[Rfam]
The record is a 262-nucleotide sequence from Corymbia citriodora, which matches "RNase MRP" in Rfam. Rfam links the family to the GO terms rRNA processing, ribonuclease MRP complex and ribonuclease MRP activity. Rfam's curators write: RNase MRP is an enzymatically active ribonucleoprotein with two distinct roles in eukaryotes. In mitochondria it plays a direct role in the initiation of mitochondrial DNA replication. Lineage of the source: Eukaryota > Magnoliopsida > Eucalypteae > Corymbia > Corymbia citriodora. By type it is a ribozyme. On this family, see Piccinelli et al., Nucleic Acids Res 2005: "Identification and analysis of ribonuclease P and MRP RNA in a broad range of eukaryotes".
RNA sequence: AAGCCACUGGGCGAAGUGAAUGGGCCGAAACCCAGCAACCGUUGGGCCGGGCUCAGGAAAGUCCCCGGGCCACGUCCUGCAGAGAUGCAGUCUCGGGAACGAGAUGGGCUUCGAACGGUUGGGCUCCCGUCGCCACCGUGUGACGAGGCUGAGACGCGUGCGGAGCCUCCGUGGGGCUCACCCGAAGCUUGAAUUGGCCGAUCCUCACAGUUAUUCACUUGGCCCAUUGGGCUAACUGAACGGGGCUUACGCCCCAGUGGCU
Numbered sequence: 001a002a003g004c005c006a007c008u009g010g011g012c013g014a015a016g017u018g019a020a021u022g023g024g025c026c027g028a029a030a031c032c033c034a035g036c037a038a039c040c041g042u043u044g045g046g047c048c049g050g051g052c053u054c055a056g057g058a059a060a061g062u063c064c065c066c067g068g069g070c071c072a073c074g075u076c077c078u079g080c081a082g083a084g085a086u087g088c089a090g091u092c093u094c095g096g097g098a099a100c101g102a103g104a105u106g107g108g109c110u111u112c113g114a115a116c117g118g119u120u121g122g123g124c125u126c127c128c129g130u131c132g133c134c135a136c137c138g139u140g141u142g143a144c145g146a147g148g149c150u151g152a153g154a155c156g157c158g159u160g161c162g163g164a165g166c167c168u169c170c171g172u173g174g175g176g177c178u179c180a181c182c183c184g185a186a187g188c189u190u191g192a193a194u195u196g197g198c199c200g201a202u203c204c205u206c207a208c209a210g211u212u213a214u215u216c217a218c219u220u221g222g223c224c225c226a227u228u229g230g231g232c233u234a235a236c237u238g239a240a241c242g243g244g245g246c247u248u249a250c251g252c253c254c255c256a257g258u259g260g261c262u
Stems, first nucleotide, its partner, number of pairs: 002262010014220006021055006059248003063245004078089004090105006122178003133174004146168004156161001222232004